The family of this 114-nucleotide RNA is "drum RNA".
It is one of the family's seed sequences.
The family's RNA type in Rfam is small RNA.
Pairs were carried over by alignment from the consensus structure, which is taken from published work.
RNA sequence: GAGCGUUGAAAUAAGGGAGUGUGCCGGUACGCAUUGCCUUAUGGAGCUUUCAGGGGGGGUUGUGCAGCGAAACCUCAAACCGGCGUAGGCAUUAGCUGAAAGAAAAUGCUCCGA
Numbered sequence: 001g002a003g004c005g006u007u008g009a010a011a012u013a014a015g016g017g018a019g020u021g022u023g024c025c026g027g028u029a030c031g032c033a034u035u036g037c038c039u040u041a042u043g044g045a046g047c048u049u050u051c052a053g054g055g056g057g058g059g060u061u062g063u064g065c066a067g068c069g070a071a072a073c074c075u076c077a078a079a080c081c082g083g084c085g086u087a088g089g090c091a092u093u094a095g096c097u098g099a100a101a102g103a104a105a106a107u108g109c110u111c112c113g114a
Stems, first nucleotide, its partner, number of pairs: 001049004011042006018035005024083004064109003088097003